[Rfam]
RNA: Small nucleolar RNA snoR8a
RNA sequence: UUGGUUGAGAUGUAUGAUUAUAAGCAAAUUCCUCGUAUUGAGUGCUCUGCCAAACCAUUUACACCCAUAGAAUAUGUGAGCACC
Numbered sequence: 001u002u003g004g005u006u007g008a009g010a011u012g013u014a015u016g017a018u019u020a021u022a023a024g025c026a027a028a029u030u031c032c033u034c035g036u037a038u039u040g041a042g043u044g045c046u047c048u049g050c051c052a053a054a055c056c057a058u059u060u061a062c063a064c065c066c067a068u069a070g071a072a073u074a075u076g077u078g079a080g081c082a083c084c
Base pairs, nucleotide, nucleotide: 003084004083006082007081
Dot-bracket structure: ..((.((.........................................................................))))